[Rfam]
RNA sequence: UGUCGGCGACCGGGCCCCUCUGACGGGAUGCGCAACGCUCCCGUGAUGUCGGAGCCGAUGC
Numbered sequence: 001u002g003u004c005g006g007c008g009a010c011c012g013g014g015c016c017c018c019u020c021u022g023a024c025g026g027g028a029u030g031c032g033c034a035a036c037g038c039u040c041c042c043g044u045g046a047u048g049u050c051g052g053a054g055c056c057g058a059u060g061c
Stems, first nucleotide, its partner, number of pairs: 006055002010052004023044006030038002